Record summary:
A member of the RNA family "miR-430 microRNA precursor family" from Perca flavescens, 70 nucleotides long. The match comes from Rfam's covariance-model search (70 bits). Its family is annotated with RISC complex and miRNA-mediated post-transcriptional gene silencing in the Gene Ontology. Lineage of the source: Eukaryota > Eumetazoa > Teleostomi > Percinae > Perca. The base pairs follow the family's consensus structure, which was predicted with RNAalifold.
RNA sequence: AAAACUACCCAAACAGAAGCACUGACUUGAGUUGGGUAUACAGUAAGUGCUACUUGUUGGGGUAGUUUUA
Numbered sequence: 001a002a003a004a005c006u007a008c009c010c011a012a013a014c015a016g017a018a019g020c021a022c023u024g025a026c027u028u029g030a031g032u033u034g035g036g037u038a039u040a041c042a043g044u045a046a047g048u049g050c051u052a053c054u055u056g057u058u059g060g061g062g063u064a065g066u067u068u069u070a
Base pairs, nucleotide, nucleotide: 004066005065006064007063008062009061010060013057014056015055016054018051019050020049021048022047023046025044026043027042